A member of the RNA family "MIR1435 microRNA precursor family" from Setaria viridis, 200 nucleotides long. Pairs were carried over by alignment from the consensus structure, which was predicted with RNAalifold.
RNA sequence: UAGUUUUGUCCUAAGUCAAAGCUCUCUAACUUCGACCAAGUUUAUAGAAAAAUAUAUUAACAUCUACAAUACCAAAUAAAUGCACUAUCAAGACAUAUUUUAUGGUGGAUCUAAUGAAACUAAAUUGAUGCCAUAGAUGUUGGUACAUUUUUUUAUAAACUUGAUCAAAAUUAAAGAAGUUUGACUUAGGGUAAUAAAGC
Number, nucleotide and partner (000 for none) at each position: 001u000002a000003g000004u000005u000006u194007u193008g192009u191010c000011c189012u188013a187014a186015g185016u184017c183018a182019a181020a180021g000022c000023u177024c176025u175026c000027u000028a000029a000030c000031u169032u168033c000034g166035a165036c000037c000038a000039a000040g000041u000042u000043u000044a000045u155046a154047g153048a152049a151050a150051a149052a148053u000054a000055u145056a144057u143058u000059a141060a140061c139062a138063u137064c136065u135066a134067c000068a000069a000070u000071a000072c000073c127074a126075a125076a000077u123078a000079a000080a000081u000082g000083c000084a000085c000086u000087a000088u000089c000090a000091a000092g000093a000094c000095a000096u000097a000098u000099u000100u000101u000102a000103u000104g000105g000106u000107g000108g000109a000110u000111c000112u000113a000114a000115u000116g000117a000118a000119a000120c000121u000122a000123a077124a000125u075126u074127g073128a000129u000130g000131c000132c000133a000134u066135a065136g064137a063138u062139g061140u060141u059142g000143g057144u056145a055146c000147a000148u052149u051150u050151u049152u048153u047154u046155a045156u000157a000158a000159a000160c000161u000162u000163g000164a000165u035166c034167a000168a032169a031170a000171u000172u000173a000174a000175a025176g024177a023178a000179g000180u020181u019182u018183g017184a016185c015186u014187u013188a012189g011190g000191g009192u008193a007194a006195u000196a000197a000198a000199g000200c000